[Rfam]
RNA: Nitrogen stress-induced RNA 1
RNA sequence: CAGUAGAUGCACCCUGAUGGCAACGCCUGGAUUUUAUCUGGGCGUUUUUUUU
Numbered sequence: 001c002a003g004u005a006g007a008u009g010c011a012c013c014c015u016g017a018u019g020g021c022a023a024c025g026c027c028u029g030g031a032u033u034u035u036a037u038c039u040g041g042g043c044g045u046u047u048u049u050u051u052u
Stems, first nucleotide, its partner, number of pairs: 003012002024044009